A member of the RNA family "mir-124 microRNA precursor family" from Pristionchus pacificus, 73 nucleotides long. Rfam's curators put it in the seed alignment. The family's consensus secondary structure was predicted with PFOLD. The organism belongs to Pristionchus, within Eukaryota. A reference for the family is Lai et al. (2003), "Computational identification of Drosophila microRNA genes", Genome Biol. Its family is annotated with miRNA-mediated post-transcriptional gene silencing and RISC complex in the Gene Ontology.
[Rfam]
RNA sequence: UCACUUCGCUUUCACCGGUGACUUUAGUGCUUUGUCACAGAGAGAACUAAGGCACGCGGUGAAUGCCAAGAGA
Number, nucleotide and partner (000 for none) at each position: 001u000002c000003a000004c070005u069006u068007c000008g066009c065010u000011u063012u062013c061014a060015c059016c000017g000018g057019u056020g055021a000022c052023u051024u050025u049026a048027g047028u046029g000030c000031u000032u000033u000034g000035u000036c000037a000038c000039a000040g000041a000042g000043a000044g000045a000046a028047c027048u026049a025050a024051g023052g022053c000054a000055c020056g019057c018058g000059g015060u014061g013062a012063a011064u000065g009066c008067c000068a006069a005070g004071a000072g000073a000